The record is a 178-nucleotide RNA from Megalops atlanticus, which matches "Small nucleolar RNA SNORA81" in Rfam.
The match comes from Rfam's covariance-model search (124 bits).
RNA sequence: UUCUUCCAAAUAAAGAACUGUGCUAAAAUUUCCAAAACCAGGUUCUCUUGGUUUUGGCAAUAAUGCUAGCAGAGUAAAAAGUGGAAGAAGAACAUUUGCACUGUACUGCAAAUGAGAUUUGGUCGGACCUCUUUCUUAAUGUCCAGUGUCCUAUGUCUCAAAGUCCAGUGCCACAUAU
Numbered sequence: 001u002u003c004u005u006c007c008a009a010a011u012a013a014a015g016a017a018c019u020g021u022g023c024u025a026a027a028a029u030u031u032c033c034a035a036a037a038c039c040a041g042g043u044u045c046u047c048u049u050g051g052u053u054u055u056g057g058c059a060a061u062a063a064u065g066c067u068a069g070c071a072g073a074g075u076a077a078a079a080a081g082u083g084g085a086a087g088a089a090g091a092a093c094a095u096u097u098g099c100a101c102u103g104u105a106c107u108g109c110a111a112a113u114g115a116g117a118u119u120u121g122g123u124c125g126g127a128c129c130u131c132u133u134u135c136u137u138a139a140u141g142u143c144c145a146g147u148g149u150c151c152u153a154u155g156u157c158u159c160a161a162a163g164u165c166c167a168g169u170g171c172c173a174c175a176u177a178u
Stems, first nucleotide, its partner, number of pairs: 018074002021071005028064003034055002037052006098171006105164001122147001125144003
For this family Rfam cites "A novel experimental approach for systematic identification of box H/ACA snoRNAs from eukaryotes" (Gu et al., Nucleic Acids Res, 2005). By type it is an H/ACA-box small nucleolar RNA. Its family is annotated with RNA processing and nucleolus in the Gene Ontology. Lineage of the source: Eukaryota > Eumetazoa > Actinopteri > Elopomorpha > Megalops.